[Rfam]
RNA sequence: UAAGCCCUACUGUGUGCGCAACGACCCAUGUUUUGAGCCAACACAUUGAGUAUGGGAGCUUAACUCUGAUUGCGGCAUGCAUGCCUCCUAGUCGAGGAGCGUAAAAGCAGUUAGGCGGCACCCACCUGCCAGGGGCAGGUUCAAAACAAGGGUGAUAAACGGCAUAGUGGGGAACAA
Number, nucleotide and partner (000 for none) at each position: 001u000002a000003a000004g000005c172006c171007c170008u169009a168010c167011u166012g165013u164014g163015u162016g000017c161018g160019c000020a000021a000022c000023g000024a000025c000026c000027c000028a000029u000030g147031u146032u145033u144034u143035g142036a141037g140038c139039c138040a000041a000042c000043a000044c000045a000046u000047u000048g000049a000050g000051u000052a000053u000054g123055g122056g121057a000058g119059c118060u117061u000062a000063a000064c000065u000066c000067u113068g112069a111070u110071u109072g108073c107074g000075g000076c000077a000078u000079g100080c099081a000082u000083g000084c097085c096086u095087c094088c000089u000090a000091g000092u000093c000094g087095a086096g085097g084098a000099g080100c079101g000102u000103a000104a000105a000106a000107g073108c072109a071110g070111u069112u068113a067114g000115g000116c000117g060118g059119c058120a000121c056122c055123c054124a000125c000126c000127u000128g000129c000130c000131a000132g000133g000134g000135g000136c000137a000138g039139g038140u037141u036142c035143a034144a033145a032146a031147c030148a000149a000150g000151g000152g000153u000154g000155a000156u000157a000158a000159a000160c018161g017162g015163c014164a013165u012166a011167g010168u009169g008170g007171g006172g005173a000174a000175c000176a000177a000
The record is a 177-nucleotide RNA from Anaerosporomusa subterranea, which matches "6S / SsrS RNA" in Rfam. Rfam describes the family as follows. E. coli 6S RNA was the first non coding RNA to be sequenced, but its function was unknown until recently. It consists of 184 nucleotides that fold into an extended hairpin structure with a large single-stranded internal bulge. Taxonomically the source falls in Anaerosporomusa (Bacteria, Bacillati, Negativicutes, Acetonemataceae). A search with the family's covariance model found it, with a score of 83 bits. On this family, see Wassarman and Storz, Cell 2000: "6S RNA regulates E. coli RNA polymerase activity".